[Rfam]
RNA sequence: UGAGUGUUAUGAUGAUGGCGCUGUGUUUGAGUUGACGUAUUAACGUCGAGUAGCACUGCUUAGUCUAGCUCUGUCUACCGAAAUAUUUAUUUCGG
Numbered sequence: 001u002g003a004g005u006g007u008u009a010u011g012a013u014g015a016u017g018g019c020g021c022u023g024u025g026u027u028u029g030a031g032u033u034g035a036c037g038u039a040u041u042a043a044c045g046u047c048g049a050g051u052a053g054c055a056c057u058g059c060u061u062a063g064u065c066u067a068g069c070u071c072u073g074u075c076u077a078c079c080g081a082a083a084u085a086u087u088u089a090u091u092u093c094g095g
Base pairs, nucleotide, nucleotide: 002071003070004069005068011065012064013063017060018059019058020057022055023054024053078095079094080093081092082091083090
L17 ribosomal protein downstream element: a 95-nucleotide RNA from Lactococcus garvieae. The match comes from Rfam's covariance-model search (54 bits).